[Rfam]
RNA: MIR6151 microRNA precursor family
Organism: Nicotiana sylvestris
RNA sequence: GAGCAUUGGAUGAGUGAGAGGCGUCGGAUUGAUUUUAUUCAAUCCGAGCCUCACAUUCAUCAUGUGCUCGU
Numbered sequence: 001g002a003g004c005a006u007u008g009g010a011u012g013a014g015u016g017a018g019a020g021g022c023g024u025c026g027g028a029u030u031g032a033u034u035u036u037a038u039u040c041a042a043u044c045c046g047a048g049c050c051u052c053a054c055a056u057u058c059a060u061c062a063u064g065u066g067c068u069c070g071u
Stems, first nucleotide, its partner, number of pairs: 004066001006064001009061008018052001020050003024047009